Clostridiales-1 RNA: a 168-nucleotide RNA sequence from [Ruminococcus] lactaris. The base pairs follow the family's consensus structure, which is taken from published work.
RNA sequence: AGAUACCAGGGUCAAAAGGUCUGACACCACGUGUGCUCGCACACGAGUGGUAGAAUGACCUUGUGACCCGCCCCAAUAUGAGCAUAAAAGUGGGGCGUAAGCACCACUAUAUGCGAAUGUUGGGUAGAAUUGUGGGAGCACGUAGUGCGUAACAAUCCGUAGGUAUCA
Number, nucleotide and partner (000 for none) at each position: 001a000002g167003a166004u165005a164006c163007c162008a000009g000010g000011g067012u066013c065014a064015a000016a000017a061018g060019g059020u058021c057022u000023g000024a000025c053026a051027c050028c049029a048030c047031g044032u043033g042034u041035g040036c000037u000038c000039g000040c035041a034042c033043a032044c031045g000046a000047g030048u029049g028050g027051u026052a000053g025054a000055a000056u000057g021058a020059c019060c018061u017062u000063g000064u014065g013066a012067c011068c000069c000070g000071c000072c124073c123074c122075a121076a120077u119078a118079u117080g000081a000082g114083c113084a112085u111086a000087a000088a000089a000090g000091u000092g000093g105094g104095g102096c101097g000098u000099a000100a000101g096102c095103a000104c094105c093106a000107c000108u000109a000110u000111a085112u084113g083114c082115g000116a000117a079118u078119g077120u076121u075122g074123g073124g072125u000126a000127g158128a000129a156130u155131u154132g153133u152134g000135g000136g000137a000138g148139c147140a146141c145142g000143u000144a000145g141146u140147g139148c138149g000150u000151a000152a133153c132154a131155a130156u129157c000158c127159g000160u000161a000162g007163g006164u005165a004166u003167c002168a000